[Rfam]
RNA sequence: UUAAGUAGUGGUGCCGCUCUUAUUAGAAUUAUCAAGUAAUAAGAGUUGUUCGCUACUUAACG
Numbered sequence: 001u002u003a004a005g006u007a008g009u010g011g012u013g014c015c016g017c018u019c020u021u022a023u024u025a026g027a028a029u030u031a032u033c034a035a036g037u038a039a040u041a042a043g044a045g046u047u048g049u050u051c052g053c054u055a056c057u058u059a060a061c062g
Stems, first nucleotide, its partner, number of pairs: 002059010013049002016046010